[Rfam]
This 309-nucleotide sequence from Derxia gummosa belongs to the Rfam family "Bacterial RNase P class A". Rfam describes the family as follows. Ribonuclease P (RNase P) is a ubiquitous endoribonuclease, found in archaea, bacteria and eukarya as well as chloroplasts and mitochondria. Its best characterised activity is the generation of mature 5'-ends of tRNAs by cleaving the 5'-leader elements of precursor-tRNAs. Cellular RNase Ps are ribonucleoproteins. Pairs were carried over by alignment from the consensus structure, which is taken from published work. The match comes from Rfam's covariance-model search (219 bits). The family's RNA type in Rfam is ribozyme.
RNA sequence: GAAGCGGAUCGGACAGCCGCCGGGCCGGCUUGCCGGCCGGGAGGAAAGUCCGGACUCCGCAGGGCUGCGUAGCAGGUAACACCUGUCCGCCGCAAGGCGCGGAUCAGAGCAACAGAGACGAGCCGAUUCAGUUCGGGUGAAACGGGCAAUCUCUACGCGGAGCAACACCAAAUAGGCGGUCGAUGACCUUGCCCGGCGAGGCCGCGGGUAGGUGGCUUGAGCGGCGUGGCGACACGUCGCCUAGAGGAAUGGCUGUCAGGGCGGGGCAACCCGCCGUCACAGAAUCCGGCUUACAGAUCCGCUUCGCAC
Numbered sequence: 001g002a003a004g005c006g007g008a009u010c011g012g013a014c015a016g017c018c019g020c021c022g023g024g025c026c027g028g029c030u031u032g033c034c035g036g037c038c039g040g041g042a043g044g045a046a047a048g049u050c051c052g053g054a055c056u057c058c059g060c061a062g063g064g065c066u067g068c069g070u071a072g073c074a075g076g077u078a079a080c081a082c083c084u085g086u087c088c089g090c091c092g093c094a095a096g097g098c099g100c101g102g103a104u105c106a107g108a109g110c111a112a113c114a115g116a117g118a119c120g121a122g123c124c125g126a127u128u129c130a131g132u133u134c135g136g137g138u139g140a141a142a143c144g145g146g147c148a149a150u151c152u153c154u155a156c157g158c159g160g161a162g163c164a165a166c167a168c169c170a171a172a173u174a175g176g177c178g179g180u181c182g183a184u185g186a187c188c189u190u191g192c193c194c195g196g197c198g199a200g201g202c203c204g205c206g207g208g209u210a211g212g213u214g215g216c217u218u219g220a221g222c223g224g225c226g227u228g229g230c231g232a233c234a235c236g237u238c239g240c241c242u243a244g245a246g247g248a249a250u251g252g253c254u255g256u257c258a259g260g261g262c263g264g265g266g267c268a269a270c271c272c273g274c275c276g277u278c279a280c281a282g283a284a285u286c287c288g289g290c291u292u293a294c295a296g297a298u299c300c301g302c303u304u305c306g307c308a309c
Base pairs, nucleotide, nucleotide: 001305002304003303004302005301006300007299008298009297010296011294012257013256014255015254016253017252018251020041021040023038024037025036026035027034028033046292047291048290050289051288052287053286054285055162056161057160058159062194063193064192065191067158068157069156070155071154072086073085074084075083076082087101088099089098090097091096102153103152107151108150109147110146123136124135125134126133166214167213168212169211176205177204178203179202180201181200188196189195221240222239223238224237225236226235227234228233